This 71-nucleotide sequence from Prevotella sp. CAG:487 belongs to the Rfam family "Bacteroidetes FopS (family of paralogous sRNAs)". The family's consensus secondary structure is taken from published work. The source organism's lineage runs through Bacteria, Bacteroidia, Bacteroidales, Prevotellaceae and Prevotella. From the family's description: The RNA-binding protein RbpB and BTncRNA_FopS sRNA are involved in the post-transcription regulation of polysaccharide utilisation loci (PUL). FopS sRNAs function as post-transcriptional repressors by binding to the vicinity of the start codon of the first mRNA of target PUL polycistrons, typically corresponding to the cognate SusC homolog, impeding translation of the respective glycan transporter.
RNA sequence: GUGUUUUUCAUGGUAUUAGAUUUAAGUUUAACAAAGACAGGGGACUCGGCGGAGUCCCUUCUUUGUUUUUG
Numbered sequence: 001g002u003g004u005u006u007u008u009c010a011u012g013g014u015a016u017u018a019g020a021u022u023u024a025a026g027u028u029u030a031a032c033a034a035a036g037a038c039a040g041g042g043g044a045c046u047c048g049g050c051g052g053a054g055u056c057c058c059u060u061c062u063u064u065g066u067u068u069u070u071g
Stems, first nucleotide, its partner, number of pairs: 041058007